[Rfam]
RNA sequence: GCCCUUCACCGGGGGUGCCGGGCCUGCUUGACGGCGGGCGGCGGCUGAGAGAUACCCCUCUCACCUGAUCUGGGUUGUGCCAGCGUAGGGAGCGUGACGAAGGCCGGCC
Number, nucleotide and partner (000 for none) at each position: 001g000002c000003c000004c000005u000006u097007c096008a095009c094010c000011g058012g057013g056014g055015g000016u052017g045018c044019c043020g042021g000022g000023c000024c000025u000026g000027c000028u000029u000030g000031a000032c000033g000034g000035c000036g000037g000038g000039c000040g000041g000042c020043g019044g018045c017046u000047g000048a000049g000050a000051g000052a016053u000054a000055c014056c013057c012058c011059u000060c000061u000062c000063a000064c089065c088066u087067g086068a000069u000070c083071u082072g081073g080074g000075u000076u000077g000078u000079g000080c073081c072082a071083g070084c000085g000086u067087a066088g065089g064090g000091a000092g000093c000094g009095u008096g007097a006098c000099g000100a000101a000102g000103g000104c000105c000106g000107g000108c000109c000

Notes
A member of the RNA family "TPP riboswitch aptamer (THI element)" from Hydrogenophaga sp., 109 nucleotides long. Taxonomically the source falls in Hydrogenophaga (Bacteria, Pseudomonadati, Pseudomonadota, Burkholderiales). A search with the family's covariance model found it, with a score of 57 bits.